[Rfam]
RNA sequence: CUUGCACCUCAACCCAAGAACCGCCACUUCCCGUAGUGACGGUUUAAACAGGGGUGCACAUAGUAAGUGGAUCUCGUCGCCUUUGGAGGGCUGUGGCUGUGCCCACCAAAGUGAAUUUGGAGGUUCCACACCC
Numbered sequence: 001c002u003u004g005c006a007c008c009u010c011a012a013c014c015c016a017a018g019a020a021c022c023g024c025c026a027c028u029u030c031c032c033g034u035a036g037u038g039a040c041g042g043u044u045u046a047a048a049c050a051g052g053g054g055u056g057c058a059c060a061u062a063g064u065a066a067g068u069g070g071a072u073c074u075c076g077u078c079g080c081c082u083u084u085g086g087a088g089g090g091c092u093g094u095g096g097c098u099g100u101g102c103c104c105a106c107c108a109a110a111g112u113g114a115a116u117u118u119g120g121a122g123g124u125u126c127c128a129c130a131c132c133c
Stems, first nucleotide, its partner, number of pairs: 003058007019044005025038004069126007081111006088104004
Annotation:
This 133-nucleotide sequence from Cavia porcellus belongs to the Rfam family "Small nucleolar RNA SNORA68". The sequence is in the family's curated seed alignment. The literature on the family includes a 1997 paper in Genes Dev by Ganot et al., "The family of box ACA small nucleolar RNAs is defined by an evolutionarily conserved secondary structure and ubiquitous sequence elements essential for RNA accumulation". The base pairs follow the family's consensus structure, which was predicted with PFOLD. Rfam's curators write: U68 is a member of the H/ACA class of small nucleolar RNAs (snoRNAs) which act as guides in the the modification of uridines to pseudouridines. Its family is annotated with RNA processing and nucleolus in the Gene Ontology.